RNA sequence: CGAGUCGGUUGGGCGAUCGCUCUUCACCUGGUGGAGGGAGGAAAGUCCGGGCUCCACAGGGCAGGGUGCCAGAUAACUUCUGGGGGGCGCGAGCCUACGGAAAGUGCAGCAGAAAGGAAACCGCCUCUGCGUGCAGAGGUAAGGGUGAAAAGGUGCGGUAAGAGCGCACCGCGCGGCUGGUAACAGGCGCGGCGAUGGUAAACCCCACUCGGAGCAAGACCAAAUAGGAACUCGUGUGCCGCGGCCCGCGGUGGGUUCGGGUAGGUCGCUUCAGGCAGCUGGUGACAGUUGUCGCAGAUGAAUGGUCGUCCACGACAGAACCCGGCUUACAGACCGACUCGCUUA
Numbered sequence: 001c002g003a004g005u006c007g008g009u010u011g012g013g014c015g016a017u018c019g020c021u022c023u024u025c026a027c028c029u030g031g032u033g034g035a036g037g038g039a040g041g042a043a044a045g046u047c048c049g050g051g052c053u054c055c056a057c058a059g060g061g062c063a064g065g066g067u068g069c070c071a072g073a074u075a076a077c078u079u080c081u082g083g084g085g086g087g088c089g090c091g092a093g094c095c096u097a098c099g100g101a102a103a104g105u106g107c108a109g110c111a112g113a114a115a116g117g118a119a120a121c122c123g124c125c126u127c128u129g130c131g132u133g134c135a136g137a138g139g140u141a142a143g144g145g146u147g148a149a150a151a152g153g154u155g156c157g158g159u160a161a162g163a164g165c166g167c168a169c170c171g172c173g174c175g176g177c178u179g180g181u182a183a184c185a186g187g188c189g190c191g192g193c194g195a196u197g198g199u200a201a202a203c204c205c206c207a208c209u210c211g212g213a214g215c216a217a218g219a220c221c222a223a224a225u226a227g228g229a230a231c232u233c234g235u236g237u238g239c240c241g242c243g244g245c246c247c248g249c250g251g252u253g254g255g256u257u258c259g260g261g262u263a264g265g266u267c268g269c270u271u272c273a274g275g276c277a278g279c280u281g282g283u284g285a286c287a288g289u290u291g292u293c294g295c296a297g298a299u300g301a302a303u304g305g306u307c308g309u310c311c312a313c314g315a316c317a318g319a320a321c322c323c324g325g326c327u328u329a330c331a332g333a334c335c336g337a338c339u340c341g342c343u344u345a
Stems, first nucleotide, its partner, number of pairs: 001341010011330001012310007020038008043328003047325005052214004059247004064210005069083005084098001085096004099205002104203002106199002121144002123140007152170006171193001172191004177186003218267004228258006238252005274293008
A member of the RNA family "Bacterial RNase P class A" from Halioglobus sp. HI00S01, 345 nucleotides long. The match comes from Rfam's covariance-model search (332 bits). The organism belongs to Halioglobus, within Bacteria. The family's RNA type in Rfam is ribozyme. Its family is annotated with dimeric ribonuclease P complex, tRNA processing and ribonuclease P activity in the Gene Ontology.